The record is a 69-nucleotide RNA sequence from Ornithorhynchus anatinus, which matches "mir-8/mir-141/mir-200 microRNA precursor family" in Rfam. Rfam 15.1 lists 2,669 matches to the family in 883 species. The source organism's lineage runs through Eukaryota, Craniata, Vertebrata, Euteleostomi and Ornithorhynchus. On this family, see Lagos-Quintana et al., Science 2001: "Identification of novel genes coding for small expressed RNAs". Rfam's curators put it in the seed alignment.

[Rfam]
RNA sequence: AUUGGUGUCUUACCAGACAAAGUUAGAUCUGACUAUUUUCGUCUAAUACUGUCUGGUAAUGCCGUCAAU
Numbered sequence: 001a002u003u004g005g006u007g008u009c010u011u012a013c014c015a016g017a018c019a020a021a022g023u024u025a026g027a028u029c030u031g032a033c034u035a036u037u038u039u040c041g042u043c044u045a046a047u048a049c050u051g052u053c054u055g056g057u058a059a060u061g062c063c064g065u066c067a068a069u
Base pairs, nucleotide, nucleotide: 002068003067004066005065006064007063009061010059011058012057013056014055015054016053017052018051019050022047023046024045025044026043027042